[Rfam]
Shown here is a 157-nucleotide RNA, a member of the family "RT-14 RNA".
RNA sequence: CUCUAAUAUUCAGUGAGAUUAUAUAUUUUAAGGAAUGUAUACAGUGCAGAUGUUAGAUAUUAAAGGAAACUUAUUCCUUCUUAAAAGGAAUUUUAAGUAAAGAUGAAUUAGAGAUAUCUAUAUUAGUAAACAAUUUUGCUGAAUAUAUAGAUGUUUC
Numbered sequence: 001c002u003c004u005a006a007u008a009u010u011c012a013g014u015g016a017g018a019u020u021a022u023a024u025a026u027u028u029u030a031a032g033g034a035a036u037g038u039a040u041a042c043a044g045u046g047c048a049g050a051u052g053u054u055a056g057a058u059a060u061u062a063a064a065g066g067a068a069a070c071u072u073a074u075u076c077c078u079u080c081u082u083a084a085a086a087g088g089a090a091u092u093u094u095a096a097g098u099a100a101a102g103a104u105g106a107a108u109u110a111g112a113g114a115u116a117u118c119u120a121u122a123u124u125a126g127u128a129a130a131c132a133a134u135u136u137u138g139c140u141g142a143a144u145a146u147a148u149a150g151a152u153g154u155u156u157c
Stems, first nucleotide, its partner, number of pairs: 003056007013047002020041009080097007111157013129140001

It is annotated as a small RNA. It is one of the family's seed sequences.